[Rfam]
RNA sequence: UAAGCCAACUCAGGAGAGACUCAGAUUUUUGUGAGCGCCGAAGGUGUACGCAGCAGUCCGCUGCAAUUCUCUCAGGCAAAAGGAUGGAGGAAGAAAA
Numbered sequence: 001u002a003a004g005c006c007a008a009c010u011c012a013g014g015a016g017a018g019a020c021u022c023a024g025a026u027u028u029u030u031g032u033g034a035g036c037g038c039c040g041a042a043g044g045u046g047u048a049c050g051c052a053g054c055a056g057u058c059c060g061c062u063g064c065a066a067u068u069c070u071c072u073c074a075g076g077c078a079a080a081a082g083g084a085u086g087g088a089g090g091a092a093g094a095a096a097a
Stems, first nucleotide, its partner, number of pairs: 009089003013085001020035004037077003040073002044071001046069001050064005
A member of the RNA family "Glycine riboswitch aptamer" from Frisingicoccus caecimuris, 97 nucleotides long. The match comes from Rfam's covariance-model search (51 bits).